[Rfam]
RNA: T-box leader
Organism: Lachnospiraceae bacterium C7
RNA sequence: AUAAAUGCGUUGAAUAGAAAUAGUAAGCCGUGUAAGUCAUACAGAGAGAAGUCGGGUGGUGCGAGACUUUAGAUUUUGCAAGCUGAACCAGUCUAGGAGCAGCAGAAGGGAAAGCUGAUUGUAGUAAUGGUAUUAUUAUUUGAUCAGAAACUUCUGACGGAAGGUCACCGUAAUCAUAGACAGGUGAGUAUUUGCUCACAAUGAGAGCAGACAAUAGUCUGAAUUUAGGUGGUAACGCGGAAUUAUUUCGUCCUAAGU
Numbered sequence: 001a002u003a004a005a006u007g008c009g010u011u012g013a014a015u016a017g018a019a020a021u022a023g024u025a026a027g028c029c030g031u032g033u034a035a036g037u038c039a040u041a042c043a044g045a046g047a048g049a050a051g052u053c054g055g056g057u058g059g060u061g062c063g064a065g066a067c068u069u070u071a072g073a074u075u076u077u078g079c080a081a082g083c084u085g086a087a088c089c090a091g092u093c094u095a096g097g098a099g100c101a102g103c104a105g106a107a108g109g110g111a112a113a114g115c116u117g118a119u120u121g122u123a124g125u126a127a128u129g130g131u132a133u134u135a136u137u138a139u140u141u142g143a144u145c146a147g148a149a150a151c152u153u154c155u156g157a158c159g160g161a162a163g164g165u166c167a168c169c170g171u172a173a174u175c176a177u178a179g180a181c182a183g184g185u186g187a188g189u190a191u192u193u194g195c196u197c198a199c200a201a202u203g204a205g206a207g208c209a210g211a212c213a214a215u216a217g218u219c220u221g222a223a224u225u226u227a228g229g230u231g232g233u234a235a236c237g238c239g240g241a242a243u244u245a246u247u248u249c250g251u252c253c254u255a256a257g258u
Stems, first nucleotide, its partner, number of pairs: 007100002015095004026084003037073002048070006103156006158170003208221005226255004237251005